[Rfam]
RNA sequence: AGGGCUUUUGGCUCAGCCUAGCAGCCUACUACUGCUGUAUGGUUACCAAAUGAUCCCAAGAGAAAUAUCUAGCCUUCUGAAGACUGUGUUGCGUGGAGGUAAUACAACACAGACAGAUACGAGGCUGACAUGG
Number, nucleotide and partner (000 for none) at each position: 001a000002g057003g056004g055005c000006u053007u052008u000009u000010g000011g000012c000013u000014c000015a044016g043017c042018c041019u000020a000021g000022c037023a036024g035025c034026c000027u000028a000029c000030u000031a000032c000033u000034g025035c024036u023037g022038u000039a000040u000041g018042g017043u016044u015045a000046c000047c000048a000049a000050a000051u000052g007053a006054u000055c004056c003057c002058a000059a000060g000061a000062g000063a000064a000065a000066u000067a000068u000069c000070u127071a126072g125073c124074c123075u122076u121077c000078u000079g000080a000081a000082g000083a000084c112085u111086g110087u000088g000089u107090u106091g105092c000093g000094u000095g000096g000097a000098g000099g000100u000101a000102a000103u000104a000105c091106a090107a089108c000109a000110c086111a085112g084113a000114c000115a000116g000117a000118u000119a000120c000121g076122a075123g074124g073125c072126u071127g070128a000129c000130a000131u000132g000133g000
Shown here is a 133-nucleotide RNA from Acanthaster planci, a member of the family "Small Cajal body specific RNA 8". Gene Ontology terms of the family: RNA processing, Cajal body and nucleolus. A search with the family's covariance model found it, with a score of 58 bits. Rfam describes the family as follows. scaRNAs are a specific class of small nuclear RNAs which localise to the Cajal bodies and guide the modification of RNA polymerase II transcribed spliceosomal RNAs U1, U2, U4, U5 and U12. U92 belong to the H/ACA box class of guide RNAs as it has the predicted hairpin-hinge-hairpin-tail structure, conserved H/ACA-box motifs and is found associated with GAR1. By type it is a small Cajal body RNA. Lineage of the source: Eukaryota > Bilateria > Eleutherozoa > Asteroidea > Acanthaster.